[Rfam]
Background: Rfam assigns this 123-nucleotide sequence from Gossypium davidsonii to the family "MIR7504 microRNA precursor family". The match comes from Rfam's covariance-model search (114 bits).
RNA sequence: AAUAGGAGAAUGACAAAUCAAAUUUUUCUUCCUGAUAUUCAACAUUUUCCUCCUGACAAAAUUAAAAUCCAACUAAAAAUGUUAAAUAUCUAGAGAAAAAAUAUGAUUUGUCAUUCUCCUAUU
Numbered sequence: 001a002a003u004a005g006g007a008g009a010a011u012g013a014c015a016a017a018u019c020a021a022a023u024u025u026u027u028c029u030u031c032c033u034g035a036u037a038u039u040c041a042a043c044a045u046u047u048u049c050c051u052c053c054u055g056a057c058a059a060a061a062u063u064a065a066a067a068u069c070c071a072a073c074u075a076a077a078a079a080u081g082u083u084a085a086a087u088a089u090c091u092a093g094a095g096a097a098a099a100a101a102u103a104u105g106a107u108u109u110g111u112c113a114u115u116c117u118c119c120u121a122u123u
Stems, first nucleotide, its partner, number of pairs: 001123020022102006029095003034090006041083002045079004